Annotation
The family of this 113-nucleotide RNA from Oreochromis niloticus is "U5 spliceosomal RNA".
RNA sequence: ACACUCUGGCUUCUCUUCAUAACGUACAAGUCUUUCGCCUUUUACUAAAGACUUCCGUGGAGAGCAGCGUUAAAGAGUUGCACCUAUUUUUGGCAGGGUCUGCCGUCUGGCUG
Numbered sequence: 001a002c003a004c005u006c007u008g009g010c011u012u013c014u015c016u017u018c019a020u021a022a023c024g025u026a027c028a029a030g031u032c033u034u035u036c037g038c039c040u041u042u043u044a045c046u047a048a049a050g051a052c053u054u055c056c057g058u059g060g061a062g063a064g065c066a067g068c069g070u071u072a073a074a075g076a077g078u079u080g081c082a083c084c085u086a087u088u089u090u091u092g093g094c095a096g097g098g099u100c101u102g103c104c105g106u107c108u109g110g111c112u113g
Base pairs, nucleotide, nucleotide: 003078004077005076006075009068010067011066013064014063015062016061017060018059019058028054029053030052031051032050033049034048035047100113102111103110104109
From the family's description: U5 RNA is a component of both types of known spliceosome. It is annotated as a spliceosomal small nuclear RNA. Rfam 15.1 lists 28,527 matches to the family in 2,489 species. The source organism's lineage runs through Eukaryota, Gnathostomata, Actinopteri, Ovalentaria and Oreochromis. The match comes from Rfam's covariance-model search (87 bits). The base pairs follow the family's consensus structure, which is taken from published work.